[Rfam]
RNA sequence: AGAAUCUCUAGGAUUCUAAGAAUCUCUAGGAUUCUGAGAAUCUCAACGAUUCUGAGAAUCUCUAGGAUUCUGAGAAUCUCUAGGAUUCUGAGAAUCUCUAGGAUUCUGAGAAUUUCUAGGAUUCUGAGAAUCUCUAGGAUUCUGAGAAUCUCUAAGAUUCUGAGAAUCUGUAAGAUUCU
Numbered sequence: 001a002g003a004a005u006c007u008c009u010a011g012g013a014u015u016c017u018a019a020g021a022a023u024c025u026c027u028a029g030g031a032u033u034c035u036g037a038g039a040a041u042c043u044c045a046a047c048g049a050u051u052c053u054g055a056g057a058a059u060c061u062c063u064a065g066g067a068u069u070c071u072g073a074g075a076a077u078c079u080c081u082a083g084g085a086u087u088c089u090g091a092g093a094a095u096c097u098c099u100a101g102g103a104u105u106c107u108g109a110g111a112a113u114u115u116c117u118a119g120g121a122u123u124c125u126g127a128g129a130a131u132c133u134c135u136a137g138g139a140u141u142c143u144g145a146g147a148a149u150c151u152c153u154a155a156g157a158u159u160c161u162g163a164g165a166a167u168c169u170g171u172a173a174g175a176u177u178c179u
Stems, first nucleotide, its partner, number of pairs: 001179007013077004019071006026065004030060006037053005083133007092124004099118005105112001137169007148158004